[Rfam]
RNA sequence: UGACCGAUGGUGUAACUGGCAACACGUCUGAUUUUGGUUCAGAAGAGUCUAGGUUCGAGCCCUAGUCGGUCAA
Number, nucleotide and partner (000 for none) at each position: 001u072002g071003a070004c069005c068006g067007a066008u000009g000010g025011u024012g023013u022014a000015a000016c000017u000018g000019g000020c000021a000022a013023c012024a011025c010026g000027u043028c042029u041030g040031a039032u000033u000034u000035u000036g000037g000038u000039u031040c030041a029042g028043a027044a000045g000046a000047g000048u000049c065050u064051a063052g062053g061054u000055u000056c000057g000058a000059g000060c000061c053062c052063u051064a050065g049066u007067c006068g005069g004070u003071c002072a001073a000
Overview
The record is a 73-nucleotide sequence from Cecembia lonarensis, which matches "tRNA" in Rfam. The family's consensus secondary structure is taken from published work. A reference for the family is Hou (1993), "The tertiary structure of tRNA and the development of the genetic code", Trends Biochem Sci. The match comes from Rfam's covariance-model search (62 bits).